[Rfam]
RNA sequence: AGAGAGAGAGAGAGAGGCAGGGUCUAAUCCGCAGCCUCUGUGGCAGCUGUUGAUAAGCCAUUGCCUCUCCCUUUCUCUCCA
Number, nucleotide and partner (000 for none) at each position: 001a000002g000003a000004g000005a000006g000007a000008g073009a072010g071011a000012g069013a068014g067015a066016g065017g064018c063019a062020g061021g000022g059023u000024c057025u056026a000027a054028u053029c052030c000031g000032c049033a048034g047035c046036c000037u000038c000039u000040g000041u000042g000043g000044c000045a000046g035047c034048u033049g032050u000051u000052g029053a028054u027055a000056a025057g024058c000059c022060a000061u020062u019063g018064c017065c016066u015067c014068u013069c012070c000071c010072u009073u008074u000075c000076u000077c000078u000079c000080c000081a000

This 81-nucleotide RNA from Myotis lucifugus belongs to the Rfam family "mir-574 microRNA precursor family". Its Rfam clan is "mir-574 microRNA precursor clan". The family has 6 seed sequences and 4,084 matches in Rfam 15.1. Gene Ontology terms of the family: RISC complex and miRNA-mediated post-transcriptional gene silencing. A search with the family's covariance model found it, with a score of 83 bits.